[Rfam]
RNA: Group II catalytic intron D1-D4-1
Organism: Lacticaseibacillus paracasei
RNA sequence: AAAGCCUGUCAGUGAUGGCUGGUUGAACGAUAUAGGAAUUAGCCGAGGCCAUAGUAGUGGUAACACGAAGGGC
Numbered sequence: 001a002a003a004g005c006c007u008g009u010c011a012g013u014g015a016u017g018g019c020u021g022g023u024u025g026a027a028c029g030a031u032a033u034a035g036g037a038a039u040u041a042g043c044c045g046a047g048g049c050c051a052u053a054g055u056a057g058u059g060g061u062a063a064c065a066c067g068a069a070g071g072g073c
Stems, first nucleotide, its partner, number of pairs: 002024001004023003008019004039046002048073003057066003